[Rfam]
RNA sequence: CAACAAUGAUCGCUGAAUUUCUUCGUAUUUGAAGAAAGCGGGGGAACCAAUGGGUUGCGUGGUGCCGGUGUGAGAGCCGGUUAUCGCAACAUGGGGUGAAUCCUGGAGACGGAGCGCCAUGGGCUCUAACUCCGGGUAGGGCGACUCUCACCGCCCGAAUCCGACAGCUAACCUCGUAAGCGUGGAAGACGAAACAG
Numbered sequence: 001c002a003a004c005a006a007u008g009a010u011c012g013c014u015g016a017a018u019u020u021c022u023u024c025g026u027a028u029u030u031g032a033a034g035a036a037a038g039c040g041g042g043g044g045a046a047c048c049a050a051u052g053g054g055u056u057g058c059g060u061g062g063u064g065c066c067g068g069u070g071u072g073a074g075a076g077c078c079g080g081u082u083a084u085c086g087c088a089a090c091a092u093g094g095g096g097u098g099a100a101u102c103c104u105g106g107a108g109a110c111g112g113a114g115c116g117c118c119a120u121g122g123g124c125u126c127u128a129a130c131u132c133c134g135g136g137u138a139g140g141g142c143g144a145c146u147c148u149c150a151c152c153g154c155c156c157g158a159a160u161c162c163g164a165c166a167g168c169u170a171a172c173c174u175c176g177u178a179a180g181c182g183u184g185g186a187a188g189a190c191g192a193a194a195c196a197g
Base pairs, nucleotide, nucleotide: 011182012181013180014179018037019036020035021034022033023032024031025030038177039176040175041174042173043172048093049092094162095161096160102136103135104134105133106132107131108130139156140155141154142153

This 197-nucleotide sequence from Paenibacillus thalictri belongs to the Rfam family "c-di-AMP riboswitch aptamer (ydaO/yuaA leader)".
It scores 90 bits against the family's covariance model.
The source organism's lineage runs through Bacteria, Bacillota, Bacilli, Paenibacillaceae and Paenibacillus.